RNA sequence: CAGUGCAGUCACUCAUAAAGUAGACAGCACUACUAAAGGUCUCUACACAGUGUAGUGUUUCCUACUUUAUGGAUGA
Numbered sequence: 001c002a003g004u005g006c007a008g009u010c011a012c013u014c015a016u017a018a019a020g021u022a023g024a025c026a027g028c029a030c031u032a033c034u035a036a037a038g039g040u041c042u043c044u045a046c047a048c049a050g051u052g053u054a055g056u057g058u059u060u061c062c063u064a065c066u067u068u069a070u071g072g073a074u075g076a
Stems, first nucleotide, its partner, number of pairs: 014071010026059008
The record is a 76-nucleotide RNA from Cyprinus carpio, which matches "mir-142 microRNA precursor family" in Rfam. The family's consensus secondary structure was predicted with RNAalifold. The family has 37 seed sequences and 1,555 matches in Rfam 15.1. Taxonomically the source falls in Cyprinus (Eukaryota, Actinopterygii, Osteoglossocephalai, Otomorpha). Its family is annotated with RISC complex and miRNA-mediated post-transcriptional gene silencing in the Gene Ontology. The literature on the family includes a 2004 paper in Biochem Biophys Res Commun by Kasashima et al., "Altered expression profiles of microRNAs during TPA-induced differentiation of HL-60 cells".